Shown here is an 83-nucleotide RNA sequence from Drosophila ananassae, a member of the family "mir-973 microRNA precursor family". The source organism's lineage runs through Eukaryota, Bilateria, Arthropoda, Hexapoda and ananassae species complex. The family has 2 seed sequences and 13 matches in Rfam 15.1.
RNA sequence: CGACUCCUCGUGUUUGGCGAUUGAACCUGGAUUUUUAAUUUUCGAGUACGAGAAAUCUGUUCAUUCCUCGACACUAGUAGUUG
Numbered sequence: 001c002g003a004c005u006c007c008u009c010g011u012g013u014u015u016g017g018c019g020a021u022u023g024a025a026c027c028u029g030g031a032u033u034u035u036u037a038a039u040u041u042u043c044g045a046g047u048a049c050g051a052g053a054a055a056u057c058u059g060u061u062c063a064u065u066c067c068u069c070g071a072c073a074c075u076a077g078u079a080g081u082u083g
Stems, first nucleotide, its partner, number of pairs: 002082004007077002010074003014071004019066001022063005029058006
Dot-bracket structure: .((((.((.(((.((((.(..(((((..((((((..................)))))))))))..).))))))).)).)))).